Small nucleolar RNA SNORD58: a 66-nucleotide sequence from Amphiprion percula. snoRNA U58 is found in introns 1, 3 and 6 of the ribosomal protein RPL17 gene in humans. The literature on the family includes a 2002 paper in Mol Cell Biol by Galardi et al., "Purified box C/D snoRNPs are able to reproduce site-specific 2'-O-methylation of target RNA in vitro". The organism belongs to Amphiprion, within Eukaryota. It is annotated as a C/D-box small nucleolar RNA. Its Rfam clan is "SNORD58 clan".
RNA sequence: UUGCGAUGAUGACCUUUUUAGGACACCUUUAGAUGAACCAUGAAAAGAAGUAUUAGUCUGAGCGAU
Numbered sequence: 001u002u003g004c005g006a007u008g009a010u011g012a013c014c015u016u017u018u019u020a021g022g023a024c025a026c027c028u029u030u031a032g033a034u035g036a037a038c039c040a041u042g043a044a045a046a047g048a049a050g051u052a053u054u055a056g057u058c059u060g061a062g063c064g065a066u
Stems, first nucleotide, its partner, number of pairs: 001065004